[Rfam]
RNA sequence: AAUCGCUGCGACAACUGGCGAGGGUGGACCACCACCGGGGAGUCACGCGCCGGGACAUCGCCCGCCUGGGUGUCCCGC
Numbered sequence: 001a002a003u004c005g006c007u008g009c010g011a012c013a014a015c016u017g018g019c020g021a022g023g024g025u026g027g028a029c030c031a032c033c034a035c036c037g038g039g040g041a042g043u044c045a046c047g048c049g050c051c052g053g054g055a056c057a058u059c060g061c062c063c064g065c066c067u068g069g070g071u072g073u074c075c076c077g078c
Base pairs, nucleotide, nucleotide: 004049005048007047008046010044011043012042015039016038017066018065019064020063024035025034026033027032055073056072057071058070059069
Source information
ZMP/ZTP riboswitch aptamer (pfl RNA motif): a 78-nucleotide RNA from Knoellia koreensis. The organism belongs to Knoellia, within Bacteria.